[Rfam]
Nucleotides: 283
Base pairs, nucleotide, nucleotide: 005139006138007137008136009135010134012132013131014130015129016128017127020044021043022042025039026038027037028036029035048055049054063089064088065087066086067085070081071080072079091122092121093119094118095117096115097114098113102109103108142281143280145278149271150270151269152268153267154266158247159246160245161244162243163242164241165240166239167238168237169235171203172202173201174200178195179194180193181192182191183190184189207232208231209230210229212228213227215226216225249259250258
Number, partner (000 for none) and nucleotide at each position: 001000g002000a003000g004000u005139c006138u007137a008136a009135c010134g011000u012132c013131u014130a015129u016128g017127c018000g019000a020044g021043u022042g023000u024000u025039u026038g027037g028036g029035u030000g031000u032000a033000a034000a035029a036028c037027c038026c039025g040000u041000a042022c043021g044020c045000g046000u047000a048055a049054u050000g051000a052000a053000a054049g055048u056000g057000a058000a059000c060000g061000u062000a063089g064088g065087u066086g067085a068000g069000g070081g071080c072079c073000c074000u075000c076000a077000c078000g079072g080071g081070u082000g083000c084000a085067u086066c087065a088064u089063c090000g091122a092121c093119c094118g095117a096115u097114c098113c099000u100000g101000a102109u103108g104000u105000u106000u107000u108103c109102g110000g111000a112000u113098g114097g115096a116000u117095u118094u119093g120000a121092g122091u123000a124000a125000g126000a127017g128016c129015a130014u131013a132012g133000c134010u135009g136008u137007u138006g139005g140000g141000a142281c143280c144000c145278g146000a147000a148000a149271g150270a151269u152268g153267g154266u155000g156000a157000a158247c159246u160245a161244u162243g163242c164241c165240u166239g167238a168237a169235u170000a171203g172202g173201g174200u175000g176000a177000a178195g179194c180193c181192a182191g183190a184189g185000g186000a187000a188000a189184c190183u191182c192181u193180g194179g195178u196000g197000g198000a199000g200174g201173c202172u203171c204000g205000u206000a207232g208231c209230g210229g211000u212228u213227c214000u215226g216225a217000c218000g219000u220000g221000c222000a223000a224000a225216u226215c227213g228212a229210u230209c231208g232207u233000c234000a235169a236000a237168u238167u239166u240165g241164g242163g243162u244161a245160u246159a247158g248000g249259g250258g251000c252000g253000a254000a255000a256000g257000a258250c259249u260000a261000a262000u263000c264000g265000a266154a267153c268152c269151a270150u271149c272000u273000a274000g275000u276000a277000g278145c279000u280143g281142g282000u283000u